Small nucleolar RNA SNORD89: a 108-nucleotide RNA sequence from Cnephaeus nilssonii.
Rfam classes the family as a C/D-box small nucleolar RNA.
The source organism's lineage runs through Eukaryota, Chordata, Boreoeutheria, Vespertilionidae and Cnephaeus.
A search with the family's covariance model found it, with a score of 92 bits.
Pairs were carried over by alignment from the consensus structure, which was predicted with RNAalifold.
Rfam's curators write: snoRNA HBII-289 belongs to the family of C/D snoRNAs. It is the human orthologue of the mouse MBII-289 and has no identified RNA target.
RNA sequence: ACUGAGGAGUGAUGACAGGAAAGGCCGAAUUGCAGUGCUCCGCCAGCAGUUUGCUCUCUGCGGCCACGAUGACAAAACCUCCUGAAGCGAACUCCGUCUGACCUCAGU
Number, nucleotide and partner (000 for none) at each position: 001a108002c107003u106004g105005a104006g103007g102008a000009g000010u000011g000012a000013u000014g098015a097016c096017a000018g000019g000020a000021a000022a000023g000024g033025c032026c000027g000028a000029a000030u000031u000032g025033c024034a000035g094036u000037g092038c000039u090040c089041c087042g000043c000044c084045a083046g082047c000048a000049g067050u066051u000052u000053g000054c062055u000056c060057u000058c000059u000060g056061c000062g054063g000064c000065c000066a050067c049068g081069a080070u000071g078072a000073c000074a000075a000076a000077a000078c071079c000080u069081c068082c046083u045084g044085a000086a000087g041088c000089g040090a039091a000092c037093u000094c035095c000096g016097u015098c014099u000100g000101a000102c007103c006104u005105c004106a003107g002108u001